[Rfam]
RNA sequence: ACGAUGUUCCGCUGCCUCUUAGAAGACAAGAGCAUUAG
Number, nucleotide and partner (000 for none) at each position: 001a000002c000003g036004a035005u034006g033007u032008u031009c030010c000011g000012c000013u028014g027015c025016c000017u023018c022019u000020u000021a000022g018023a017024a000025g015026a000027c014028a013029a000030g009031a008032g007033c006034a005035u004036u003037a000038g000

Shown here is a 38-nucleotide RNA from Halobacillus yeomjeoni, a member of the family "Ribosomal protein L19 leader". A search with the family's covariance model found it, with a score of 38 bits. This family is a putative r-protein leader autoregulatory structure found in B. subtilis and other low-GC Gram-positive bacteria. It is located in the 5' untranslated regions of mRNAs encoding ribosomal protein L19 (rplS). The literature on the family includes a 1994 paper in Prog Nucleic Acid Res Mol Biol by Zengel and Lindahl, "Diverse mechanisms for regulating ribosomal protein synthesis in Escherichia coli". Taxonomically the source falls in Halobacillus (Bacteria, Bacillota, Caryophanales, Bacillaceae).